Annotation:
permuted transfer-messenger RNA: a 258-nucleotide RNA sequence. Rfam describes the family as follows. Bacterial tmRNA, also known as 10Sa RNA or SsrA, is named for its dual tRNA and mRNA-like properties. The family's consensus secondary structure is taken from published work. A search with the family's covariance model found it, with a score of 58 bits.

RNA sequence: ACCGAAGCAGAGAGAACGAAACAGACGGACAAGACACGGGUGCGAAUCCCGUCGGCUCCACCAAUCCCCCUCCUAUAAUGGGAGACGGGCGCGGUUUGAGGGGCCGAACAGUAUCGAUUGACGUUGGUGACGGGAUUGAAUGGCGAGUGCUAGGGUCUGCAUGGUGGUCUUCGGGCUGCUCACGAUCCAACUUUGACAACUGUCGAAGCACACAACGACAACUUCGCCGCUGGCGAACGAGUCCUCCUGGCCGCCUAA
Numbered sequence: 001a002c003c004g005a006a007g008c009a010g011a012g013a014g015a016a017c018g019a020a021a022c023a024g025a026c027g028g029a030c031a032a033g034a035c036a037c038g039g040g041u042g043c044g045a046a047u048c049c050c051g052u053c054g055g056c057u058c059c060a061c062c063a064a065u066c067c068c069c070c071u072c073c074u075a076u077a078a079u080g081g082g083a084g085a086c087g088g089g090c091g092c093g094g095u096u097u098g099a100g101g102g103g104c105c106g107a108a109c110a111g112u113a114u115c116g117a118u119u120g121a122c123g124u125u126g127g128u129g130a131c132g133g134g135a136u137u138g139a140a141u142g143g144c145g146a147g148u149g150c151u152a153g154g155g156u157c158u159g160c161a162u163g164g165u166g167g168u169c170u171u172c173g174g175g176c177u178g179c180u181c182a183c184g185a186u187c188c189a190a191c192u193u194u195g196a197c198a199a200c201u202g203u204c205g206a207a208g209c210a211c212a213c214a215a216c217g218a219c220a221a222c223u224u225c226g227c228c229g230c231u232g233g234c235g236a237a238c239g240a241g242u243c244c245u246c247c248u249g250g251c252c253g254c255c256u257a258a
Stems, first nucleotide, its partner, number of pairs: 003143001005141001017132001026123002030120003036052005053106007144184002147181001